[Rfam]
Notes
This 179-nucleotide RNA sequence from Microvirga tunisiensis belongs to the Rfam family "Alphaproteobacterial sRNA ar45".

RNA sequence: GCCCAAUUUCGCACGUGCCUGUGGUCGUGUGUCGGUUGGUGGGCAUCCGGACAAGAGGCCGGACAGCCGCCCGAGAGCGAACUAGCUCUCGAUACCCCUAACCGGCAGCCGGAGGCGAAAACCGGCGCACCUCGUUCUCAACGGGGGACGCGACUUAAAGCAACGACGAACGGGCUUUU
Numbered sequence: 001g002c003c004c005a006a007u008u009u010c011g012c013a014c015g016u017g018c019c020u021g022u023g024g025u026c027g028u029g030u031g032u033c034g035g036u037u038g039g040u041g042g043g044c045a046u047c048c049g050g051a052c053a054a055g056a057g058g059c060c061g062g063a064c065a066g067c068c069g070c071c072c073g074a075g076a077g078c079g080a081a082c083u084a085g086c087u088c089u090c091g092a093u094a095c096c097c098c099u100a101a102c103c104g105g106c107a108g109c110c111g112g113a114g115g116c117g118a119a120a121a122c123c124g125g126c127g128c129a130c131c132u133c134g135u136u137c138u139c140a141a142c143g144g145g146g147g148a149c150g151c152g153a154c155u156u157a158a159a160g161c162a163a164c165g166a167c168g169a170a171c172g173g174g175c176u177u178u179u
Stems, first nucleotide, its partner, number of pairs: 001175004009166003016162003023155008038071005046063005095147004
A reference for the family is del Val et al. (2012), "A survey of sRNA families in alpha-proteobacteria", RNA Biol.
By type it is a small RNA.
The pairing is the family consensus, mapped onto this sequence.